The family of this 98-nucleotide RNA from Clostridium sp. cel8 is "SAM riboswitch aptamer (S box leader)". The family is grouped with related families in Rfam's "SAM clan".

RNA sequence: CUCUUAUCAAGAGAGGUGGAGGGAAAGGGCCCUAUGAAACCCGGCAACCGGUAGAAUUACUAAGGUGCCAAUUCCUGCAGUUUCCUGCGAGAUAAGAG
Dot-bracket structure: ((((((((....(.(((...(((...[[[)))......))))((((.((((((....))))..))))))...(]]].(((....)))..)))))))))
Numbered sequence: 001c002u003c004u005u006a007u008c009a010a011g012a013g014a015g016g017u018g019g020a021g022g023g024a025a026a027g028g029g030c031c032c033u034a035u036g037a038a039a040c041c042c043g044g045c046a047a048c049c050g051g052u053a054g055a056a057u058u059a060c061u062a063a064g065g066u067g068c069c070a071a072u073u074c075c076u077g078c079a080g081u082u083u084c085c086u087g088c089g090a091g092a093u094a095a096g097a098g
Stems, first nucleotide, its partner, number of pairs: 001098008013042001015041003021032003027076003043069004048065002050061004073090001078087003

Annotation
The match comes from Rfam's covariance-model search (86 bits).